[Rfam]
RNA sequence: AGCUGGCAAACCCGACUGGCUGAAAGAAGCCAUAGGAAGUUAGAGGUACACAACUAACCGUAACCUGCUUCGGCGGUGUUGGUGGGUAAGCGUCCAAAAUAGCGCAAAGCCCGAUACUUAGUCAGACCAAUACUGUACUUGAGGGUGGUAUUUCUAACAGGGAGUCAGU
Numbered sequence: 001a002g003c004u005g006g007c008a009a010a011c012c013c014g015a016c017u018g019g020c021u022g023a024a025a026g027a028a029g030c031c032a033u034a035g036g037a038a039g040u041u042a043g044a045g046g047u048a049c050a051c052a053a054c055u056a057a058c059c060g061u062a063a064c065c066u067g068c069u070u071c072g073g074c075g076g077u078g079u080u081g082g083u084g085g086g087u088a089a090g091c092g093u094c095c096a097a098a099a100u101a102g103c104g105c106a107a108a109g110c111c112c113g114a115u116a117c118u119u120a121g122u123c124a125g126a127c128c129a130a131u132a133c134u135g136u137a138c139u140u141g142a143g144g145g146u147g148g149u150a151u152u153u154c155u156a157a158c159a160g161g162g163a164g165u166c167a168g169u
Stems, first nucleotide, its partner, number of pairs: 001017002003014001005012002032169002036165001040157005049147003064144003073136003077132007084112004090105004

A member of the RNA family "Group II catalytic intron D1-D4-3" from Pseudoalteromonas sp. NBT06-2, 169 nucleotides long. The family has 406 seed sequences and 4,274 matches in Rfam 15.1. Taxonomically the source falls in Pseudoalteromonas (Bacteria, Pseudomonadati, Pseudomonadota, Gammaproteobacteria). The pairing is the family consensus, mapped onto this sequence.